[Rfam]
The record is a 104-nucleotide RNA from Pseudoteredinibacter isoporae, which matches "t44 RNA" in Rfam. On this family, see Tjaden et al., Nucleic Acids Res 2002: "Transcriptome analysis of Escherichia coli using high-density oligonucleotide probe arrays". Taxonomically the source falls in Pseudoteredinibacter (Bacteria, Pseudomonadati, Pseudomonadota, Gammaproteobacteria). Pairs were carried over by alignment from the consensus structure, which was predicted with LocARNA.

RNA sequence: AUUAAAUGAUUUUAACGUCACACAUAUACCGUCACAUCCGUUUGGGUGCCCGGAUUUCCUUUGGCAGGAAAGGGUUGAGCGGCUGGGGUAUAUGGAGGCCUAAC
Numbered sequence: 001a002u003u004a005a006a007u008g009a010u011u012u013u014a015a016c017g018u019c020a021c022a023c024a025u026a027u028a029c030c031g032u033c034a035c036a037u038c039c040g041u042u043u044g045g046g047u048g049c050c051c052g053g054a055u056u057u058c059c060u061u062u063g064g065c066a067g068g069a070a071a072g073g074g075u076u077g078a079g080c081g082g083c084u085g086g087g088g089u090a091u092a093u094g095g096a097g098g099c100c101u102a103a104c
Stems, first nucleotide, its partner, number of pairs: 023094008035085002038082006048075004